Shown here is an 86-nucleotide sequence from Clostridium collagenovorans, a member of the family "c-di-GMP-I riboswitch aptamer". About the family: GEMM was predicted in a large-scale screen for bacterial structured RNA regulatory elements. Taxonomically the source falls in Clostridium collagenovorans (Bacteria, Bacillota, Clostridia, Clostridiaceae). A search with the family's covariance model found it, with a score of 74 bits. The base pairs follow the family's consensus structure, which is taken from published work.
Nucleotides: 086
Base pairs, nucleotide, nucleotide: 012037013036017032018031019030020029021028022027040080041079042078047076048075049072050071051070056066057065058064059063
Number, partner (000 for none) and nucleotide at each position: 001000u002000a003000a004000c005000u006000a007000a008000a009000u010000a011000g012037g013036c014000a015000a016000a017032c018031u019030u020029a021028g022027a023000g024000a025000a026000a027022u028021u029020u030019a031018a032017g033000g034000a035000c036013g037012c038000a039000a040080a041079g042078c043000c044000a045000a046000a047076g048075g049072g050071g051070c052000u053000a054000c055000a056066g057065u058064u059063u060000u061000u062000a063059g064058a065057a066056c067000u068000a069000c070051g071050c072049c073000a074000g075048c076047c077000a078042g079041u080040u081000g082000c083000c084000g085000g086000a